Shown here is a 515-nucleotide part of an RNA from Herdmania momus, a member of the family "Eukaryotic large subunit ribosomal RNA". The family is grouped with related families in Rfam's "LSU clan". Gene Ontology terms of the family: structural constituent of ribosome and ribosome.
Nucleotides: 515
Base pairs, nucleotide, nucleotide: 001449002448003447004446005445006444011024013022014021015020025161026160028158029157030156040118041117042116043115044114045113052106053104054103059100060099061098064095066093067092068091071090072089073088074087075086077083120145121144122143123141124140125139126138127137167191168190169189170188172186173185174184175183176182196207197206198205211388212387213386214385215384217382221378222377223376230375233372234371235370252351253350254349256348257347258346259345260344261343262342263341264340265339273334274333275332276331279304280303281302285298286297305309310328314326315325389439390438391437392436393435394434395433396432397431451510453507454506455505456504457503458502459501462498472491473490477486478485479484
Number, partner (000 for none) and nucleotide at each position: 001449c002448c003447u004446u005445c006444c007000g008000a009000a010000g011024u012000u013022u014021c015020c016000c017000u018000c019000a020015g021014g022013a023000u024011a025161g026160c027000u028158g029157c030156u031000u032000g033000g034000g035000u036000c037000g038000c039000a040118u041117u042116u043115u044114a045113u046000c047000u048000g049000g050000u051000a052106a053104a054103g055000c056000g057000a058000a059100u060099g061098a062000u063000u064095a065000g066093a067092g068091g069000c070000c071090u072089u073088g074087g075086g076000a077083c078000g079000a080000a081000a082000c083077g084000u085000c086075c087074u088073c089072a090071a091068c092067c093066u094000a095064u096000u097000c098061u099060c100059a101000a102000a103054c104053u105000u106052u107000a108000a109000a110000u111000u112000c113045g114044u115043a116042a117041g118040a119000a120145g121144c122143c123141g124140g125139c126138u127137c128000g129000c130000c131000u132000g133000g134000c135000u136000g137127g138126a139125g140124u141123c142000g143122g144121g145120c146000g147000u148000c149000g150000a151000a152000u153000g154000c155000g156030a157029g158028u159000c160026g161025c162000a163000g164000u165000g166000g167191g168190c169189c170188a171000c172186u173185c174184u175183u176182g177000g178000u179000a180000a181000g182176c183175a184174g185173g186172a187000c188170u189169g190168g191167c192000g193000a194000u195000g196207c197206g198205g199000g200000a201000u202000g203000a204000a205198c206197c207196g208000a209000a210000c211388g212387c213386c214385g215384g216000g217382u218000u219000a220000a221378g222377g223376c224000g225000c226000c227000g228000a229000g230375c231000g232000a233372c234371g235370c236000u237000c238000u239000c240000a241000g242000a243000g244000c245000c246000c247000a248000c249000a250000a251000a252351a253350g254349g255000u256348g257347u258346u259345g260344g261343u262342u263341g264340a265339u266000c267000u268000a269000g270000a271000c272000a273334g274333c275332a276331g277000u278000a279304c280303g281302g282000u283000g284000g285298c286297c287000a288000u289000g290000g291000g292000g293000a294000g295000u296000c297286g298285g299000a300000a301000u302281c303280c304279g305309u306000u307000a308000a309305g310328g311000a312000g313000u314326g315325u316000g317000u318000a319000a320000c321000a322000a323000c324000a325315a326314c327000u328310c329000a330000c331276c332275u333274g334273c335000c336000c337000g338000a339265a340264u341263c342262a343261a344260c345259c346258a347257g348256c349254c350253c351252u352000g353000a354000a355000a356000u357000g358000g359000a360000u361000g362000g363000c364000g365000c366000u367000g368000g369000a370235g371234c372233g373000u374000c375230g376223g377222c378221c379000u380000a381000u382217a383000c384215c385214c386213g387212g388211c389439c390438g391437u392436c393435g394434g395433g396432c397431c398000a399000g400000u401000a402000c403000g404000a405000c406000g407000c408000g409000u410000c411000g412000u413000c414000c415000a416000c417000c418000a419000c420000g421000a422000c423000g424000g425000c426000g427000c428000u429000a430000u431397g432396g433395u434394c435393c436392g437391a438390c439389g440000a441000g442000u443000a444006g445005g446004a447003a448002g449001g450000c451510c452000g453507c454506g455505g456504c457503g458502g459501c460000g461000c462498c463000g464000g465000c466000g467000u468000c469000g470000a471000a472491g473490c474000g475000c476000g477486a478485g479484c480000g481000u482000g483000a484479g485478c486477u487000c488000g489000c490473g491472u492000g493000g494000a495000g496000g497000a498462g499000c500000a501459g502458c503457c504456g505455u506454c507453g508000g509000u510451g511000c512000a513000g514000a515000u